[Rfam]
RNA sequence: UGGUGAUGACUUCCCAAUCUCACGAUGGUCUGCAGAGCUCCCCUGGGGGCUGCUGACAAUGCCAGUGGCAGUGGCUGAACCGUGAGU
Numbered sequence: 001u002g003g004u005g006a007u008g009a010c011u012u013c014c015c016a017a018u019c020u021c022a023c024g025a026u027g028g029u030c031u032g033c034a035g036a037g038c039u040c041c042c043c044u045g046g047g048g049g050c051u052g053c054u055g056a057c058a059a060u061g062c063c064a065g066u067g068g069c070a071g072u073g074g075c076u077g078a079a080c081c082g083u084g085a086g087u
Stems, first nucleotide, its partner, number of pairs: 001082004
The family of this 87-nucleotide RNA sequence from Eubucco bourcierii is "Small nucleolar RNA SNORD35". U35 is a C/D box snoRNA located in intron 6 of ribosomal protein L13A and intron 3 of ribosomal protein S11 in humans and at homologous positions in mouse and chicken ribosomal protein genes. It scores 60 bits against the family's covariance model. Clan: SNORD35 clan. Gene Ontology terms of the family: RNA processing and nucleolus. On this family, see Nicoloso et al., J Mol Biol 1996: "Intron-encoded, antisense small nucleolar RNAs: the characterization of nine novel species points to their direct role as guides for the 2'-O-ribose methylation of rRNAs".